This 120-nucleotide sequence from Spinacia oleracea belongs to the Rfam family "Plastid-psbA-1 3UTR RNA". By type it is a cis-regulatory element. Plastid psbA-1 is a non-coding RNA (ncRNA) present in plastids. It was identified in inverted repeat sequences in the 3 prime untranslate region (3UTR) of photosystem II quinone-binding protein (psbA). The match comes from Rfam's covariance-model search (65 bits). Taxonomically the source falls in Spinacia (Eukaryota, Spermatophyta, Caryophyllales, Amaranthaceae).
RNA sequence: UUGAAGCUCCAUCUAUAAAUAGAUAAAAUUUUAUUUUUAGCUUAGUGUAGAUGAGUUAGUGAAAGUAAAGGGGUAGUGUUGAUUUAUUGACAAAACAAGAAAUCAGGUUAUUGCUCAUUU
Numbered sequence: 001u002u003g004a005a006g007c008u009c010c011a012u013c014u015a016u017a018a019a020u021a022g023a024u025a026a027a028a029u030u031u032u033a034u035u036u037u038u039a040g041c042u043u044a045g046u047g048u049a050g051a052u053g054a055g056u057u058a059g060u061g062a063a064a065g066u067a068a069a070g071g072g073g074u075a076g077u078g079u080u081g082a083u084u085u086a087u088u089g090a091c092a093a094a095a096c097a098a099g100a101a102a103u104c105a106g107g108u109u110a111u112u113g114c115u116c117a118u119u120u
Stems, first nucleotide, its partner, number of pairs: 008023002011020002067120003071116008080105003084101002087098002